[Rfam]
RNA sequence: GGGCUAAUGAUGCUACCUUCAAUUAUCUUAGCGGAUUUCAAUCAGAUUUCUACCAUGAUCUAAUUGCUACACACACUGAAGCCC
Numbered sequence: 001g002g003g004c005u006a007a008u009g010a011u012g013c014u015a016c017c018u019u020c021a022a023u024u025a026u027c028u029u030a031g032c033g034g035a036u037u038u039c040a041a042u043c044a045g046a047u048u049u050c051u052a053c054c055a056u057g058a059u060c061u062a063a064u065u066g067c068u069a070c071a072c073a074c075a076c077u078g079a080a081g082c083c084c
Stems, first nucleotide, its partner, number of pairs: 001084005
RNA: Small nucleolar RNA R11/Z151